Notes: Shown here is a 198-nucleotide sequence from Medicago truncatula, a member of the family "MIR2670 microRNA precursor family". The base pairs follow the family's consensus structure, which was predicted with RNAalifold. The organism belongs to Medicago, within Eukaryota.

[Rfam]
Nucleotides: 198
Base pairs, nucleotide, nucleotide: 003196004195005194006193007192008191009190010189011188012187013186014185015184016183017182018181019180020179022177023176026173027172028171029170030169031168033166034165035164038159039158040157041156042152043151044150046149047148049146050145052143053142054141055140057138058137060135061134064131065130067128068127069126070125073124075121076120077119078118079117081115086106087105088104089103090102091101092100093099094098
Number, partner (000 for none) and nucleotide at each position: 001000u002000c003196g004195g005194g006193g007192u008191a009190a010189a011188a012187u013186a014185g015184u016183g017182a018181g019180u020179a021000a022177c023176u024000g025000a026173c027172a028171u029170g030169g031168g032000a033166a034165a035164g036000u037000g038159a039158u040157c041156a042152a043151u044150c045000c046149u047148u048000u049146g050145g051000a052143u053142a054141a055140g056000u057138u058137u059000u060135a061134a062000a063000c064131u065130g066000c067128u068127u069126u070125u071000u072000u073124u074000u075121u076120a077119c078118u079117c080000g081115a082000u083000a084000a085000a086106c087105u088104u089103u090102u091101u092100a093099c094098c095000a096000u097000g098094g099093g100092u101091a102090a103089a104088a105087a106086g107000a108000u109000u110000u111000g112000u113000c114000u115081u116000g117079g118078g119077g120076u121075a122000u123000a124073a125070a126069a127068a128067a129000a130065c131064a132000u133000a134061u135060u136000u137058a138057a139000a140055u141054u142053u143052a144000g145050c146049c147000c148047a149046a150044g151043g152042u153000u154000g155000a156041u157040g158039a159038u160000g161000u162000a163000u164035u165034u166033u167000c168031c169030c170029c171028a172027u173026g174000a175000a176023g177022g178000c179020u180019g181018c182017u183016c184015a185014c186013u187012a188011u189010u190009u191008u192007a193006c194005c195004c196003c197000a198000a